The record is a 46-nucleotide sequence from Sipha flava, which matches "Histone 3' UTR stem-loop" in Rfam.

[Rfam]
Nucleotides: 046
Stems, first nucleotide, its partner, number of pairs: 006021006
Number, partner (000 for none) and nucleotide at each position: 001000a002000a003000a004000a005000a006021g007020g008019c009018c010017c011016u012000u013000u014000u015000c016011a017010g018009g019008g020007c021006c022000a023000c024000c025000a026000u027000a028000u029000u030000u031000a032000c033000a034000u035000a036000u037000c038000g039000c040000a041000u042000u043000u044000a045000a046000u
NCBI's taxonomy places the organism under Eukaryota, Bilateria, Arthropoda, Altocrustacea, Sipha.